[Rfam]
RNA sequence: GUAUCCCCCGAUGAACUGCCGAAGACAGUAGGUGCCGGAUGGCAUAAGUUGAAAAACACCUACCGAGGAAUAUAUCGUUAAUAUUAUUUUAACUAUAUGCUCUCUGUCUUAUCGACAGAGAGCUUUUCUUAUUUUAGC
Numbered sequence: 001g002u003a004u005c006c007c008c009c010g011a012u013g014a015a016c017u018g019c020c021g022a023a024g025a026c027a028g029u030a031g032g033u034g035c036c037g038g039a040u041g042g043c044a045u046a047a048g049u050u051g052a053a054a055a056a057c058a059c060c061u062a063c064c065g066a067g068g069a070a071u072a073u074a075u076c077g078u079u080a081a082u083a084u085u086a087u088u089u090u091a092a093c094u095a096u097a098u099g100c101u102c103u104c105u106g107u108c109u110u111a112u113c114g115a116c117a118g119a120g121a122g123c124u125u126u127u128c129u130u131a132u133u134u135u136a137g138c
Base pairs, nucleotide, nucleotide: 028063029062030061031060032059033058034043035042036041099123100122101121102120103119104118105117106116107115108114
Ribosomal protein L10 leader: a 138-nucleotide sequence from Clostridium sp. L2-50. The source organism's lineage runs through Bacteria, Bacillati, Bacillota, Clostridia and Clostridium. The sequence is in the family's curated seed alignment. From the family's description: This family is a putative r-protein leader autoregulatory structure found in B. subtilis and other low-GC Gram-positive bacteria. Pairs were carried over by alignment from the consensus structure, which was predicted with CMfinder. On this family, see Zengel and Lindahl, Prog Nucleic Acid Res Mol Biol 1994: "Diverse mechanisms for regulating ribosomal protein synthesis in Escherichia coli". It is annotated as a cis-regulatory leader.